Rfam assigns this 92-nucleotide sequence from Glycine soja to the family "Small nucleolar RNA R64/Z200 family". By type it is a C/D-box small nucleolar RNA. The family's consensus secondary structure was predicted with PFOLD. The source organism's lineage runs through Eukaryota, Streptophyta, Euphyllophyta, Magnoliopsida and Glycine subgen. Soja. A search with the family's covariance model found it, with a score of 83 bits. For this family Rfam cites "Experimental RNomics: identification of 140 candidates for small non-messenger RNAs in the plant Arabidopsis thaliana" (Marker et al., Curr Biol, 2002).

[Rfam]
Nucleotides: 092
Base pairs, nucleotide, nucleotide: 001092002091003090004089005088006087007086048059049058050057051056
Number, partner (000 for none) and nucleotide at each position: 001092g002091u003090u004089c005088u006087g007086c008000g009000g010000u011000g012000a013000a014000g015000a016000a017000u018000u019000g020000g021000a022000a023000u024000c025000a026000a027000a028000u029000u030000c031000a032000c033000a034000u035000g036000u037000c038000a039000g040000a041000c042000u043000u044000c045000a046000g047000a048059g049058a050057u051056u052000u053000u054000c055000g056051a057050a058049u059048c060000a061000a062000u063000g064000a065000g066000a067000a068000u069000g070000a071000c072000a073000a074000u075000u076000c077000u078000g079000u080000u081000a082000c083000a084000g085000a086007g087006c088005a089004g090003a091002a092001u